[Rfam]
A member of the RNA family "Small nucleolar RNA SNORD45" from Rhinolophus ferrumequinum, 72 nucleotides long.
The source organism's lineage runs through Eukaryota, Eumetazoa, Craniata, Tetrapoda and Rhinolophus.
It is annotated as a C/D-box small nucleolar RNA.
For this family Rfam cites "Purified box C/D snoRNPs are able to reproduce site-specific 2'-O-methylation of target RNA in vitro" (Galardi et al., Mol Cell Biol, 2002).

RNA sequence: GGUCAGUGAUGUGAUGGCAUGUAUUAGCUGAGUCCAAAGUUGAUGAAAAUACUGAAAUGACACUGAGACCUU
Numbered sequence: 001g002g003u004c005a006g007u008g009a010u011g012u013g014a015u016g017g018c019a020u021g022u023a024u025u026a027g028c029u030g031a032g033u034c035c036a037a038a039g040u041u042g043a044u045g046a047a048a049a050u051a052c053u054g055a056a057a058u059g060a061c062a063c064u065g066a067g068a069c070c071u072u
Stems, first nucleotide, its partner, number of pairs: 001070004